ZMP/ZTP riboswitch aptamer (pfl RNA motif): an 88-nucleotide RNA from Syntrophotalea acetylenica. Rfam links the family to the GO terms regulation of purine nucleotide biosynthetic process and one-carbon metabolic process. The match comes from Rfam's covariance-model search (58 bits). The family has 185 seed sequences and 3,295 matches in Rfam 15.1. Taxonomically the source falls in Syntrophotalea (Bacteria, Pseudomonadati, Desulfuromonadales, Syntrophotaleaceae).
[Rfam]
RNA sequence: CAGGUCUCCCGUAACUGGCGUCUCGAGGUGGUUCACCACCGGGGAGCGGGAUCAAAAGACCUGAGAGCCGUACGCCUGGGCCCCCUUG
Number, nucleotide and partner (000 for none) at each position: 001c000002a000003g053004g052005u000006c000007u051008c050009c049010c048011g047012u046013a000014a000015c043016u042017g076018g075019c074020g073021u072022c000023u000024c000025g000026a000027g000028g039029u038030g037031g036032u000033u000034c000035a000036c031037c030038a029039c028040c000041g000042g016043g015044g000045a000046g012047c011048g010049g009050g008051a007052u004053c003054a000055a000056a000057a000058g000059a000060c000061c000062u000063g000064a000065g083066a000067g081068c080069c079070g000071u000072a021073c020074g019075c018076c017077u000078g000079g069080g068081c067082c000083c065084c000085c000086u000087u000088g000